[Rfam]
RNA sequence: UACACCUUUUAAAAGAAGUCCAGCGAGGCUUACAAAGGUGUACUAGAGGAAAUCCGUUCAUCGAAACGGUCUAUUUCCUCGAGCUUUCAAACACCUUGCCUCGCUCGGCAAGGUGUUUUUUUACU
Numbered sequence: 001u002a003c004a005c006c007u008u009u010u011a012a013a014a015g016a017a018g019u020c021c022a023g024c025g026a027g028g029c030u031u032a033c034a035a036a037g038g039u040g041u042a043c044u045a046g047a048g049g050a051a052a053u054c055c056g057u058u059c060a061u062c063g064a065a066a067c068g069g070u071c072u073a074u075u076u077c078c079u080c081g082a083g084c085u086u087u088c089a090a091a092c093a094c095c096u097u098g099c100c101u102c103g104c105u106c107g108g109c110a111a112g113g114u115g116u117u118u119u120u121u122u123a124c125u
Base pairs, nucleotide, nucleotide: 003040004039005038006037007036008035009034016031017030018029019028020027043083044082046080047079048078049077050076051075052074053073089118090117091116092115093114094113095112096111097110098109099108100107